[Rfam]
RNA: Streptomyces RNA 3920
RNA sequence: GAUAGGUCGCUGCCCCUACUGUGAUUGGACACUGACGCUGAGUCAACUAGCCUUGUCCGCACGGUUCUUCGCUCGCGGGAACCGGGGCGGUCCGAGCCACGAGGGGGGAGGUUCGGACCGCCCUCA
Numbered sequence: 001g002a003u004a005g006g007u008c009g010c011u012g013c014c015c016c017u018a019c020u021g022u023g024a025u026u027g028g029a030c031a032c033u034g035a036c037g038c039u040g041a042g043u044c045a046a047c048u049a050g051c052c053u054u055g056u057c058c059g060c061a062c063g064g065u066u067c068u069u070c071g072c073u074c075g076c077g078g079g080a081a082c083c084g085g086g087g088c089g090g091u092c093c094g095a096g097c098c099a100c101g102a103g104g105g106g107g108g109a110g111g112u113u114c115g116g117a118c119c120g121c122c123c124u125c126a
Stems, first nucleotide, its partner, number of pairs: 001014001003012003016050003021032003033045004058075002062071003076084002086122013100107001